[Rfam]
RNA sequence: UUCAGCACAGGAAAUGGCAUGCUUCCUGAUAUAAACCGCUGUGCUCCAGCAGCUAAUGAUGCCUACGUGAAC
Numbered sequence: 001u002u003c004a005g006c007a008c009a010g011g012a013a014a015u016g017g018c019a020u021g022c023u024u025c026c027u028g029a030u031a032u033a034a035a036c037c038g039c040u041g042u043g044c045u046c047c048a049g050c051a052g053c054u055a056a057u058g059a060u061g062c063c064u065a066c067g068u069g070a071a072c
Stems, first nucleotide, its partner, number of pairs: 010026004016063005038053004